Y RNA: a 102-nucleotide RNA sequence from Microcebus murinus. The base pairs follow the family's consensus structure, which is taken from published work. Rfam classes the family as a non-coding RNA gene. The match comes from Rfam's covariance-model search (54 bits). Taxonomically the source falls in Microcebus (Eukaryota, Dipnotetrapodomorpha, Theria, Lemuriformes). Rfam's curators write: Y RNAs are components of the Ro ribonucleoprotein particle (Ro RNP), in association with Ro60 and La proteins. The Y RNAs and Ro60 and La proteins are well conserved, but the function of the Ro RNP is not known. In humans the RNA component can be one of four small RNAs -- hY1, hY3, hY4 and hY5. These small RNAs are predicted to fold into a conserved secondary structure containing three stem structures. The largest of the four, hY1, contains an additional hairpin. This family includes a significant number of annotated pseudogenes and the model is expected to discriminate poorly between real and Y RNA related pseudogenes.

Nucleotides: 102
Stems, first nucleotide, its partner, number of pairs: 001098002004095005010090002014086001016081002019078002028064001030062001032060002
Number, partner (000 for none) and nucleotide at each position: 001098g002097g003000c004095u005094g006093g007092u008091c009000c010090g011089a012000g013000u014086g015000c016081a017080g018000g019078g020077g021000u022000g023000u024000u025000u026000a027000c028064a029000a030062c031000u032060a033059a034000u035000u036000c037000a038000u039000c040000a041000c042000a043000a044000c045000c046000a047000g048000u049000u050000a051000c052000a053000g054000a055000u056000u057000c058000c059033u060032u061000u062030g063000c064028u065000c066000c067000u068000u069000c070000u071000c072000c073000u074000u075000u076000u077020u078019c079000a080017c081016u082000g083000u084000u085000u086014c087000a088000c089011u090010u091008g092007a093006c094005c095004a096000c097002c098001c099000u100000u101000a102000a